[Rfam]
RNA sequence: CGACUACCAAACCCUAUCUUCACCUCCACGUGGUGACCGCUGGCAGCUCUUUCUUAACGAAAUGUUGCAAACGGAAAAGG
Number, nucleotide and partner (000 for none) at each position: 001c000002g000003a000004c000005u000006a000007c000008c000009a000010a000011a000012c000013c080014c079015u078016a000017u076018c000019u074020u073021c000022a034023c033024c032025u000026c000027c000028a000029c000030g000031u000032g024033g023034u022035g000036a000037c000038c000039g000040c000041u000042g000043g000044c067045a066046g065047c064048u000049c000050u061051u060052u000053c059054u000055u000056a000057a000058c000059g053060a051061a050062a000063u000064g047065u046066u045067g044068c000069a000070a000071a000072c000073g020074g019075a000076a017077a000078a015079g014080g013
Description: Rfam assigns this 80-nucleotide sequence from Hermetia illucens to the family "drz-agam-1 ribozyme". It scores 38 bits against the family's covariance model. A reference for the family is Webb et al. (2009), "Widespread occurrence of self-cleaving ribozymes", Science.